RNA: ZMP/ZTP riboswitch aptamer (pfl RNA motif)
Nucleotides: 086
Base pairs, nucleotide, nucleotide: 004051007048008047009046010045011044012043015040016039017074018073019072020071024036025035026034027033063081064080065079066078067077
Number, partner (000 for none) and nucleotide at each position: 001000g002000c003000g004051u005000g006000c007048a008047g009046c010045u011044g012043c013000g014000a015040c016039u017074g018073g019072c020071g021000a022000g023000g024036g025035u026034g027033g028000a029000g030000u031000g032000a033027c034026c035025a036024c037000c038000g039016g040015g041000a042000a043012g044011c045010g046009g047008c048007u049000u050000g051004g052000a053000u054000c055000c056000g057000a058000u059000g060000c061000g062000a063081g064080c065079g066078u067077c068000g069000a070000c071020c072019g073018c074017c075000u076000g077067g078066g079065c080064g081063c082000u083000u084000c085000c086000g